[Rfam]
RNA sequence: GCAGCCGUGUCCGAGUGGUUAAGGAGGUGGACUUGAAAUCCACUGGGCUUUGCCCGCGCAGGUUCGAAUCCUGUCGGCUGCU
Numbered sequence: 001g002c003a004g005c006c007g008u009g010u011c012c013g014a015g016u017g018g019u020u021a022a023g024g025a026g027g028u029g030g031a032c033u034u035g036a037a038a039u040c041c042a043c044u045g046g047g048c049u050u051u052g053c054c055c056g057c058g059c060a061g062g063u064u065c066g067a068a069u070c071c072u073g074u075c076g077g078c079u080g081c082u
Base pairs, nucleotide, nucleotide: 001081002080003079004078005077006076007075010025011024012023027043028042029041030040031039058074059073060072061071062070
This 82-nucleotide sequence from Meloidogyne javanica belongs to the Rfam family "tRNA". The family's RNA type in Rfam is transfer RNA. The base pairs follow the family's consensus structure, which is taken from published work. Lineage of the source: Eukaryota > Bilateria > Rhabditida > Tylenchoidea > Meloidogyne.